Shown here is an 86-nucleotide RNA from Hymenoscyphus fraxineus, a member of the family "Small nucleolar RNA R38". The literature on the family includes a 1995 paper in Trends Biochem Sci by Bachellerie et al., "Antisense snoRNAs: a family of nucleolar RNAs with long complementarities to rRNA". Rfam describes the family as follows. snoR38 is a C/D box small nucleolar RNA conserved across yeast, human, Arabidopsis and rice. It is encoded in the intron of elongation factor-1 gamma in both pombe and cerevisiae. snoR38 guides the methylation of 2'-O-ribose sites in 28S rRNA. By type it is a C/D-box small nucleolar RNA. Rfam links the family to the GO terms RNA processing and nucleolus. The family's consensus secondary structure was predicted with PFOLD.
[Rfam]
RNA sequence: UUAUGUUAUGAUGAAGAAACAUGUCAUACAGUUAUCCCUGUCUUAAUACCCCGUGUUGAUUUUUAUUAAUUAGACUCUGAACAUAU
Numbered sequence: 001u002u003a004u005g006u007u008a009u010g011a012u013g014a015a016g017a018a019a020c021a022u023g024u025c026a027u028a029c030a031g032u033u034a035u036c037c038c039u040g041u042c043u044u045a046a047u048a049c050c051c052c053g054u055g056u057u058g059a060u061u062u063u064u065a066u067u068a069a070u071u072a073g074a075c076u077c078u079g080a081a082c083a084u085a086u
Stems, first nucleotide, its partner, number of pairs: 002085005